Acido-Lenti-1 RNA: a 47-nucleotide RNA from Caldithrix abyssi.
The organism belongs to Caldithrix abyssi, within Bacteria.
Pairs were carried over by alignment from the consensus structure, which is taken from published work.
[Rfam]
RNA sequence: CCCGCCGUUGAAACGGCGGGCUAUAAUCAUUUCAUCCCUUCGGGAUU
Numbered sequence: 001c002c003c004g005c006c007g008u009u010g011a012a013a014c015g016g017c018g019g020g021c022u023a024u025a026a027u028c029a030u031u032u033c034a035u036c037c038c039u040u041c042g043g044g045a046u047u
Base pairs, nucleotide, nucleotide: 001020002019003018004017005016006015007014008013034046035045036044037043038042